Rfam assigns this 91-nucleotide RNA from Streptococcus uberis to the family "THF (Tetrahydrofolate) riboswitch aptamer". The base pairs follow the family's consensus structure, which is taken from published work. Tetrahydrofolate (THF) riboswitch was first reported for Ames et al. as an RNA motif in 5' untranslated (5'-UTR)regions of folate transport and biosynthesis genes in Firmicutes genomes. A reference for the family is Trausch et al. (2011), "The structure of a tetrahydrofolate-sensing riboswitch reveals two ligand binding sites in a single aptamer", Structure.
RNA sequence: GACAGAGUAGAUGGUUUGCGUUAAGUGUAUGUGAAUGGGAUGUCGUCACAUAACGAAGCUUAUUGCGCGGUAAAUCAUCGCAUCCGCUGUU
Numbered sequence: 001g002a003c004a005g006a007g008u009a010g011a012u013g014g015u016u017u018g019c020g021u022u023a024a025g026u027g028u029a030u031g032u033g034a035a036u037g038g039g040a041u042g043u044c045g046u047c048a049c050a051u052a053a054c055g056a057a058g059c060u061u062a063u064u065g066c067g068c069g070g071u072a073a074a075u076c077a078u079c080g081c082a083u084c085c086g087c088u089g090u091u
Stems, first nucleotide, its partner, number of pairs: 001091005010079009019069003025054002028052007038085005058066002